[Rfam]
RNA sequence: AAUGUCGAUGAUGACUCCAUAGACCUGUAAUGAUUGCGGAGAUGACCGCACAAUAACAUCUAAGGGGCUGAGGCAUU
Numbered sequence: 001a002a003u004g005u006c007g008a009u010g011a012u013g014a015c016u017c018c019a020u021a022g023a024c025c026u027g028u029a030a031u032g033a034u035u036g037c038g039g040a041g042a043u044g045a046c047c048g049c050a051c052a053a054u055a056a057c058a059u060c061u062a063a064g065g066g067g068c069u070g071a072g073g074c075a076u077u
Stems, first nucleotide, its partner, number of pairs: 002076005
The family of this 77-nucleotide RNA sequence from Aquilegia coerulea is "Small nucleolar RNA SNORD25". Rfam 15.1 lists 985 matches to the family in 241 species. Rfam links the family to the GO terms RNA processing and nucleolus. The family's consensus secondary structure was predicted with PFOLD. The family's RNA type in Rfam is C/D-box small nucleolar RNA. The match comes from Rfam's covariance-model search (48 bits).